[Rfam]
A member of the RNA family "raiA-hairpin RNA" from Streptomyces uncialis, 48 nucleotides long. Rfam classes the family as a small RNA. Pairs were carried over by alignment from the consensus structure, which is taken from published work. It scores 69 bits against the family's covariance model.

RNA sequence: CACCGAGUCCGUGGCCUCGGGAGUCACCGGGGCCUGGUGCAAAAGGGA
Numbered sequence: 001c002a003c004c005g006a007g008u009c010c011g012u013g014g015c016c017u018c019g020g021g022a023g024u025c026a027c028c029g030g031g032g033c034c035u036g037g038u039g040c041a042a043a044a045g046g047g048a
Stems, first nucleotide, its partner, number of pairs: 013034008